A member of the RNA family "mir-205 microRNA precursor family" from Ophiophagus hannah, 73 nucleotides long. Gene Ontology terms of the family: RISC complex and miRNA-mediated post-transcriptional gene silencing.
[Rfam]
Nucleotides: 073
Stems, first nucleotide, its partner, number of pairs: 010062006018054003022050004027045003
Number, partner (000 for none) and nucleotide at each position: 001000u002000u003000g004000g005000g006000u007000g008000u009000c010062c011061u012060u013059c014058a015057u016000u017000c018054c019053a020052c021000u022050g023049g024048a025047a026000u027045c028044u029043g030000u031000c032000a033000a034000a035000g036000c037000a038000g039000a040000c041000a042000g043029c044028a045027g046000a047025u048024u049023u050022c051000u052020g053019u054018g055000a056000a057015a058014u059013g060012a061011a062010g063000c064000c065000c066000a067000u068000c069000a070000g071000g072000c073000a
The family's consensus secondary structure was predicted with RNAalifold. The family has 44 seed sequences and 1,154 matches in Rfam 15.1. Rfam's curators put it in the seed alignment.